[Rfam]
The family of this 79-nucleotide RNA from Hermetia illucens is "drz-agam-1 ribozyme". A reference for the family is Webb et al. (2009), "Widespread occurrence of self-cleaving ribozymes", Science.

RNA sequence: UACUAAGAAACCCUACCUCCACCUCCACGUGGUGACCGCUGGGAGCUCUUUUUUAACAAAAAGCUGCAGACGGAGAAGG
Numbered sequence: 001u002a003c004u005a006a007g008a009a010a011c012c013c014u015a016c017c018u019c020c021a022c023c024u025c026c027a028c029g030u031g032g033u034g035a036c037c038g039c040u041g042g043g044a045g046c047u048c049u050u051u052u053u054u055a056a057c058a059a060a061a062a063g064c065u066g067c068a069g070a071c072g073g074a075g076a077a078g079g
Stems, first nucleotide, its partner, number of pairs: 012079003016075001018073002021033003044065004049060002052058001

It scores 40 bits against the family's covariance model.